[Rfam]
RNA sequence: AAAGAUAUGAUGAAAAGGAGUAGUAGAUGAAAAAAGGGUUAAAGAGAGCUGUUGGUUGGUGAGAAACAGUACCUGAUUUUAUUGAACUCGCCUUGGAGUAUCCUAGCUGAAAUAAAGAGUAGGUUAGGACGGUUAGCUUACGUUAUAAGUGAAGAGUGUAUUUUGAUAAGCCAAUGACCUAAUCCAUAAGCCAUCUGUAGCGUGUUUAUUCAAAAUAAAGUAGAGUGGUACCGCGAAAAUAGACGUCUCUAUG
Numbered sequence: 001a002a003a004g005a006u007a008u009g010a011u012g013a014a015a016a017g018g019a020g021u022a023g024u025a026g027a028u029g030a031a032a033a034a035a036g037g038g039u040u041a042a043a044g045a046g047a048g049c050u051g052u053u054g055g056u057u058g059g060u061g062a063g064a065a066a067c068a069g070u071a072c073c074u075g076a077u078u079u080u081a082u083u084g085a086a087c088u089c090g091c092c093u094u095g096g097a098g099u100a101u102c103c104u105a106g107c108u109g110a111a112a113u114a115a116a117g118a119g120u121a122g123g124u125u126a127g128g129a130c131g132g133u134u135a136g137c138u139u140a141c142g143u144u145a146u147a148a149g150u151g152a153a154g155a156g157u158g159u160a161u162u163u164u165g166a167u168a169a170g171c172c173a174a175u176g177a178c179c180u181a182a183u184c185c186a187u188a189a190g191c192c193a194u195c196u197g198u199a200g201c202g203u204g205u206u207u208a209u210u211c212a213a214a215a216u217a218a219a220g221u222a223g224a225g226u227g228g229u230a231c232c233g234c235g236a237a238a239a240u241a242g243a244c245g246u247c248u249c250u251a252u253g
Base pairs, nucleotide, nucleotide: 007099008098015094016093017092018091026083027082028081029080030079031078037073038072039071048070049069050068051067052066053065102128103127104126105125106124107123108122130142131141159217160216161215162214163213164212165211222250223249224248225247233246234245235244
T-box leader: a 253-nucleotide RNA from Vallitalea pronyensis. Taxonomically the source falls in Vallitalea (Bacteria, Bacillati, Lachnospirales, Vallitaleaceae).